Overview: The record is a 61-nucleotide sequence from Pseudomonas sp. GV071, which matches "Xanthine riboswitch aptamer (NMT1 RNA)" in Rfam. It scores 54 bits against the family's covariance model. The base pairs follow the family's consensus structure, which is taken from published work. A reference for the family is Yu and Breaker (2020), "A bacterial riboswitch class senses xanthine and uric acid to regulate genes associated with purine oxidation", RNA. Gene Ontology term of the family: purine nucleobase binding.
RNA sequence: GUUCCGAGUAGAAGCGGUUAGCGUCGAGGCAGUUCAUUCGACGUAGGACAUUGCUCUUGCG
Dot-bracket structure: .....(((((....[..((.(((((((..........))))))).]))...))))).....